[Rfam]
RNA sequence: UCACGCGCGGCGGGAGAGCCCCGGGACCCACCGGGCGCCGAAGGAGCAAACCCUCCCCGGGAAACUCUCAGGCCAAGGUACCGCCGCAGCCCA
Numbered sequence: 001u002c003a004c005g006c007g008c009g010g011c012g013g014g015a016g017a018g019c020c021c022c023g024g025g026a027c028c029c030a031c032c033g034g035g036c037g038c039c040g041a042a043g044g045a046g047c048a049a050a051c052c053c054u055c056c057c058c059g060g061g062a063a064a065c066u067c068u069c070a071g072g073c074c075a076a077g078g079u080a081c082c083g084c085c086g087c088a089g090c091c092c093a
Stems, first nucleotide, its partner, number of pairs: 007087007020035004037073003040069002044067003051059001